[Rfam]
RNA: mir-2241 microRNA precursor family
Organism: Pristionchus pacificus
RNA sequence: UAUUCGAUACGCCUCUGAUCUUCAGGAUCCCUGUCUGAACACAGAAAUUGAGUGUUCACAAGGUUUCCUCAAGAUCAGGGCUUCGAGUC
Numbered sequence: 001u002a003u004u005c006g007a008u009a010c011g012c013c014u015c016u017g018a019u020c021u022u023c024a025g026g027a028u029c030c031c032u033g034u035c036u037g038a039a040c041a042c043a044g045a046a047a048u049u050g051a052g053u054g055u056u057c058a059c060a061a062g063g064u065u066u067c068c069u070c071a072a073g074a075u076c077a078g079g080g081c082u083u084c085g086a087g088u089c
Stems, first nucleotide, its partner, number of pairs: 002088006011081003015078008024069004030063003036058007